[Rfam]
Nucleotides: 130
Base pairs, nucleotide, nucleotide: 024047025046026045028044029042030041031040032039033038069087076081091119092118093117094116095115096114097113098112099111
Number, partner (000 for none) and nucleotide at each position: 001000u002000u003000g004000u005000c006000a007000g008000u009000g010000a011000g012000g013000u014000a015000c016000a017000u018000c019000c020000u021000u022000a023000c024047c025046u026045g027000u028044u029042g030041c031040c032039u033038u034000g035000c036000a037000a038033a039032a040031g041030g042029c043000u044028g045026c046025a047024g048000a049000a050000c051000a052000u053000g054000a055000u056000g057000a058000u059000u060000g061000g062000a063000u064000u065000c066000a067000a068000u069087g070000a071000a072000u073000g074000u075000g076081u077000g078000a079000u080000u081076a082000u083000a084000u085000u086000c087069c088000g089000c090000a091119u092118u093117u094116a095115u096114c097113a098112a099111g100000g101000a102000c103000u104000g105000c106000a107000a108000c109000u110000c111099c112098u113097u114096g115095g116094u117093g118092a119091a120000u121000c122000c123000u124000g125000u126000c127000u128000g129000a130000u